[Rfam]
RNA sequence: CCGUACUAGACGGGGAGGUAGCGGUGCCCUGUAACCUGCAAUCCGCUAUAGCAGGGUUGAAGUCCUACGCCGAGGCAUACUAUUGUACAGUCUGGUCGGUGCAAGUGGCGAAGAAGACUGGGUCCUGUGCAACGGAAAUUUACGAACCCCGCCAGGUCCGGGAGGAAGCAACGGUAAGUAAACACUUCCGUGUGCCGCAGGGUUACCUGGUCAGAGCUGGCUGCACUGGUGCCGUGUGUAAUGGUGUGUCAAGGGUAGGUGUACGG
Dot-bracket structure: ((((((..(((((((.(.(...).).))))....(((((...........)))))))).....(((((.((..(((((.((((((((((...((..((((((..(((((......((((((((((((((((.(((((.(((((.....(((.....(((....))).....)))...)))))...)))))))...))))))...))))))))...))).)).)))))).))...)))))))))).)))))..))))))).))))))
Bacterial large signal recognition particle RNA: a 266-nucleotide RNA from Calorimonas adulescens. It scores 212 bits against the family's covariance model. The signal recognition particle (SRP) is a universally conserved ribonucleoprotein involved in the co-translational targeting of proteins to membranes. The family is grouped with related families in Rfam's "SRP clan".